This 49-nucleotide RNA from Flavonifractor sp. An52 belongs to the Rfam family "ssnA RNA". Taxonomically the source falls in Flavonifractor (Bacteria, Bacillati, Clostridia, Eubacteriales). It is annotated as a cis-regulatory element.
[Rfam]
RNA sequence: AAAGUUGUAGCUGCAACGGAGUGCUUUCGCGCACGGGCUGGAUGGACAU
Numbered sequence: 001a002a003a004g005u006u007g008u009a010g011c012u013g014c015a016a017c018g019g020a021g022u023g024c025u026u027u028c029g030c031g032c033a034c035g036g037g038c039u040g041g042a043u044g045g046a047c048a049u
Stems, first nucleotide, its partner, number of pairs: 008040005021034004
Pairs were carried over by alignment from the consensus structure, which is taken from published work.